The family of this 84-nucleotide sequence from Anaerobranca californiensis is "pan motif". NCBI's taxonomy places the organism under Bacteria, Bacillota, Clostridia, Proteinivoracaceae, Anaerobranca californiensis. The match comes from Rfam's covariance-model search (43 bits).
[Rfam]
RNA sequence: UGUAAGCUACCCUUUUAGGGAGCGAAACUUUUUUCUUAAAAUUUUACAAGUACUGCUCUGAUCCGUUAGGACCGAGACAGGUAA
Numbered sequence: 001u002g003u004a005a006g007c008u009a010c011c012c013u014u015u016u017a018g019g020g021a022g023c024g025a026a027a028c029u030u031u032u033u034u035c036u037u038a039a040a041a042u043u044u045u046a047c048a049a050g051u052a053c054u055g056c057u058c059u060g061a062u063c064c065g066u067u068a069g070g071a072c073c074g075a076g077a078c079a080g081g082u083a084a
Stems, first nucleotide, its partner, number of pairs: 002028002006023003010020002053080003056076003060072001062071003